[Rfam]
Shown here is a 179-nucleotide RNA sequence from Streptomyces sp. CC53, a member of the family "c-di-AMP riboswitch aptamer (ydaO/yuaA leader)". The organism belongs to Streptomyces, within Bacteria.
RNA sequence: ACGCUUCGUGCGCCGCAGGCAGGAGCGGGGGACCCAAGGUAAGUGCCGGGUCCGGCCGUCGAGAGACGGCCGGCCACCGGCUUGGGGUGAAGCCGCGCGUCCGUCAGGGCGCACACGCGGCCGGGCGACUCCCCGCCCGAACCCGACAGCUCACCUCGCAGGCGUCGGUGAGGAGAUAC
Numbered sequence: 001a002c003g004c005u006u007c008g009u010g011c012g013c014c015g016c017a018g019g020c021a022g023g024a025g026c027g028g029g030g031g032a033c034c035c036a037a038g039g040u041a042a043g044u045g046c047c048g049g050g051u052c053c054g055g056c057c058g059u060c061g062a063g064a065g066a067c068g069g070c071c072g073g074c075c076a077c078c079g080g081c082u083u084g085g086g087g088u089g090a091a092g093c094c095g096c097g098c099g100u101c102c103g104u105c106a107g108g109g110c111g112c113a114c115a116c117g118c119g120g121c122c123g124g125g126c127g128a129c130u131c132c133c134c135g136c137c138c139g140a141a142c143c144c145g146a147c148a149g150c151u152c153a154c155c156u157c158g159c160a161g162g163c164g165u166c167g168g169u170g171a172g173g174a175g176a177u178a179c
Base pairs, nucleotide, nucleotide: 002164003163004162005161009024011022025159026158027157028156029155030154035084036083037082038081085144086143087142093120094119095118096117123138124137125136126135